[Rfam]
Shown here is a 70-nucleotide RNA from Erinaceus europaeus, a member of the family "Small nucleolar RNA SNORD30". Rfam 15.1 lists 367 matches to the family in 268 species. The family's RNA type in Rfam is C/D-box small nucleolar RNA. The organism belongs to Erinaceus, within Eukaryota.
RNA sequence: AUAUAUGAUGACUUCCUUAGAAUCUCGUUCGACUGAUAAUUUGACUGCUGAGACUGGAAUUCUGAUGUGC
Numbered sequence: 001a002u003a004u005a006u007g008a009u010g011a012c013u014u015c016c017u018u019a020g021a022a023u024c025u026c027g028u029u030c031g032a033c034u035g036a037u038a039a040u041u042u043g044a045c046u047g048c049u050g051a052g053a054c055u056g057g058a059a060u061u062c063u064g065a066u067g068u069g070c
Stems, first nucleotide, its partner, number of pairs: 023053005030047002033043001